[Rfam]
The family of this 107-nucleotide RNA sequence from Cephalotus follicularis is "Plant small nucleolar RNA R71". The family's consensus secondary structure was predicted with PFOLD. By type it is a C/D-box small nucleolar RNA. On this family, see Brown et al., Trends Plant Sci 2003: "Plant snoRNAs: functional evolution and new modes of gene expression". The source organism's lineage runs through Eukaryota, Streptophyta, Streptophytina, Euphyllophyta and Cephalotus. It scores 47 bits against the family's covariance model. Its family is annotated with nucleolus and RNA processing in the Gene Ontology.

RNA sequence: AAACCAUGAUGAGGACAUUCUAAAAGGAUAUCUUUGAAUCUCUCCAUACACCUAGAGAAUGAUUCAUUGGGUCUUUGAUGAAACUGGAGUAUAUCGUUCCUGAGCUU
Numbered sequence: 001a002a003a004c005c006a007u008g009a010u011g012a013g014g015a016c017a018u019u020c021u022a023a024a025a026g027g028a029u030a031u032c033u034u035u036g037a038a039u040c041u042c043u044c045c046a047u048a049c050a051c052c053u054a055g056a057g058a059a060u061g062a063u064u065c066a067u068u069g070g071g072u073c074u075u076u077g078a079u080g081a082a083a084c085u086g087g088a089g090u091a092u093a094u095c096g097u098u099c100c101u102g103a104g105c106u107u
Stems, first nucleotide, its partner, number of pairs: 001107001004104001005102002056074002060071001